[Rfam]
Source information: The record is a 125-nucleotide RNA sequence, which matches "Flavobacterium-1 RNA" in Rfam.
RNA sequence: CCGAGGUAGGGGUACAAGUCCUGCAGAAUUGCGUUCCACUGGACCUAAGCUGAGACCUGAAGAGGGUAGCGUCGAAUCCUCGGCGUUAGACGGGGAGAGUACCAGACGUGGUGUCCCCUCUGACG
Numbered sequence: 001c002c003g004a005g006g007u008a009g010g011g012g013u014a015c016a017a018g019u020c021c022u023g024c025a026g027a028a029u030u031g032c033g034u035u036c037c038a039c040u041g042g043a044c045c046u047a048a049g050c051u052g053a054g055a056c057c058u059g060a061a062g063a064g065g066g067u068a069g070c071g072u073c074g075a076a077u078c079c080u081c082g083g084c085g086u087u088a089g090a091c092g093g094g095g096a097g098a099g100u101a102c103c104a105g106a107c108g109u110g111g112u113g114u115c116c117c118c119u120c121u122g123a124c125g
Base pairs, nucleotide, nucleotide: 001083002082003081004080005079006078007075009073010046011045012044013043015041016040022033023032024031025030049070050069057066058065085124086123088121089120090119092118093117094116095115096114102111103110104109
Dot-bracket structure: (((((((.(((((.((.....((((....))))......)).))))..((......((......))..))..).)..)))))).((.(((.(((((.....(((....)))..)))))))).)).
The base pairs follow the family's consensus structure, which is taken from published work.